Record summary
A member of the RNA family "FuFi-1 RNA", 160 nucleotides long.

RNA sequence: GUAAUCAGCGAUUAGGCAAUUUGCAGAACCGUCACUGCUAAAGUGAUUACGCUUCUGAAGAAAUACGCGGAGCGUUUGUGUAUGAUGAAAAUCUGCAAGAGGUAUUGAGUAAACAAAUACGGACAAAGGCUGAAUGAAAACGCUCUUCAUUCGGUUUUUU
Number, nucleotide and partner (000 for none) at each position: 001g050002u049003a048004a047005u046006c045007a044008g000009c000010g000011a000012u000013u000014a000015g000016g000017c000018a000019a000020u000021u000022u000023g038024c037025a036026g035027a000028a000029c122030c121031g120032u119033c000034a000035c026036u025037g024038c023039u000040a000041a000042a000043g000044u007045g006046a005047u004048u003049a002050c001051g103052c102053u101054u100055c099056u098057g000058a000059a000060g000061a000062a000063a083064u082065a081066c080067g079068c078069g077070g145071a144072g143073c142074g141075u140076u139077u069078g068079u067080g066081u065082a064083u063084g093085a092086u091087g000088a000089a000090a000091a086092u085093c084094u000095g000096c000097a000098a056099g055100a054101g053102g052103u051104a000105u000106u000107g000108a000109g000110u000111a000112a000113a000114c000115a000116a000117a000118u000119a032120c031121g030122g029123a000124c000125a000126a158127a157128g156129g155130c154131u153132g152133a151134a150135u149136g148137a147138a146139a076140a075141c074142g073143c072144u071145c070146u138147u137148c136149a135150u134151u133152c132153g131154g130155u129156u128157u127158u126159u000160u000
The family's RNA type in Rfam is small RNA.